This 416-nucleotide RNA from Bacteroides sp. OM08-11 belongs to the Rfam family "Bacterial RNase P class A". NCBI's taxonomy places the organism under Bacteria, Pseudomonadati, Bacteroidota, Bacteroidaceae, Bacteroides. It is annotated as a ribozyme. Ribonuclease P (RNase P) is a ubiquitous endoribonuclease, found in archaea, bacteria and eukarya as well as chloroplasts and mitochondria.
RNA sequence: GCAGUUGGUCGGUCUGUCGCUUGCGUCUCGUACGUAUGAGGAAAGUCCGGGCAACAUAGAGCAUCCUACUUCCUAACAGAAAGCUGUCCGUGAGGGCAGAGUAACAUAGAAGAAAAUAACCGCCAGAGCUUUCGAGCCAUGGUAAGGGUGAGAAGGUAGGGUAAGAGCCUACCAGUCUUGUGGUGACACAAGGGCUGUAUGUCUUAGGAGUUGUAAGGUCAUGUAAACCGGCGUAAUGAGAGUUGCUCGCUCCAUGUCGGAGGGUAGACCGCUAAAGCCUGUAUGGUGACAUGCGGCUCAGAUAAAUGACAGACACUUCUUCAAUGAAGAAUGUAAUAAUUAAGAAUGAAUAAUUCCAAAGAAAGACAUCUUUAUGAACAGAAGAACAGAACCCGGCUUACAGACCGACUGCUUUU
Numbered sequence: 001g002c003a004g005u006u007g008g009u010c011g012g013u014c015u016g017u018c019g020c021u022u023g024c025g026u027c028u029c030g031u032a033c034g035u036a037u038g039a040g041g042a043a044a045g046u047c048c049g050g051g052c053a054a055c056a057u058a059g060a061g062c063a064u065c066c067u068a069c070u071u072c073c074u075a076a077c078a079g080a081a082a083g084c085u086g087u088c089c090g091u092g093a094g095g096g097c098a099g100a101g102u103a104a105c106a107u108a109g110a111a112g113a114a115a116a117u118a119a120c121c122g123c124c125a126g127a128g129c130u131u132u133c134g135a136g137c138c139a140u141g142g143u144a145a146g147g148g149u150g151a152g153a154a155g156g157u158a159g160g161g162u163a164a165g166a167g168c169c170u171a172c173c174a175g176u177c178u179u180g181u182g183g184u185g186a187c188a189c190a191a192g193g194g195c196u197g198u199a200u201g202u203c204u205u206a207g208g209a210g211u212u213g214u215a216a217g218g219u220c221a222u223g224u225a226a227a228c229c230g231g232c233g234u235a236a237u238g239a240g241a242g243u244u245g246c247u248c249g250c251u252c253c254a255u256g257u258c259g260g261a262g263g264g265u266a267g268a269c270c271g272c273u274a275a276a277g278c279c280u281g282u283a284u285g286g287u288g289a290c291a292u293g294c295g296g297c298u299c300a301g302a303u304a305a306a307u308g309a310c311a312g313a314c315a316c317u318u319c320u321u322c323a324a325u326g327a328a329g330a331a332u333g334u335a336a337u338a339a340u341u342a343a344g345a346a347u348g349a350a351u352a353a354u355u356c357c358a359a360a361g362a363a364a365g366a367c368a369u370c371u372u373u374a375u376g377a378a379c380a381g382a383a384g385a386a387c388a389g390a391a392c393c394c395g396g397c398u399u400a401c402a403g404a405c406c407g408a409c410u411g412c413u414u415u416u
Stems, first nucleotide, its partner, number of pairs: 001412010011401001012314007020038001022036005043399003047396005052213004059248004064209005069083003073079001084099001086097004100204002104202005120147002122143004128137003155173006175195001176193007217270004228260005240252004277297003281294005